[Rfam]
RNA: Bacteroidales-1 6S-Bacteroidales RNA suggested
RNA sequence: UGCCGCAUUGGUCGAUUGGGAAACUCAUCAAUUACAUUUUAUGAACCGAGACUCGUUUUUGGCAUCAAUGGCGGGCCGCAUCCUUCGGGAUUCCGGUUUUACCGGGACAGCGGAUUACAAAGAUACCGAGACACUCAAAUCCUGUCAUAAGGAGUUUCGUCUUAUUCCACCGGUGCGGCUUUUUAU
Numbered sequence: 001u002g003c004c005g006c007a008u009u010g011g012u013c014g015a016u017u018g019g020g021a022a023a024c025u026c027a028u029c030a031a032u033u034a035c036a037u038u039u040u041a042u043g044a045a046c047c048g049a050g051a052c053u054c055g056u057u058u059u060u061g062g063c064a065u066c067a068a069u070g071g072c073g074g075g076c077c078g079c080a081u082c083c084u085u086c087g088g089g090a091u092u093c094c095g096g097u098u099u100u101a102c103c104g105g106g107a108c109a110g111c112g113g114a115u116u117a118c119a120a121a122g123a124u125a126c127c128g129a130g131a132c133a134c135u136c137a138a139a140u141c142c143u144g145u146c147a148u149a150a151g152g153a154g155u156u157u158c159g160u161c162u163u164a165u166u167c168c169a170c171c172g173g174u175g176c177g178g179c180u181u182u183u184u185a186u
Stems, first nucleotide, its partner, number of pairs: 055132003059129004064124003069119002076113004081090003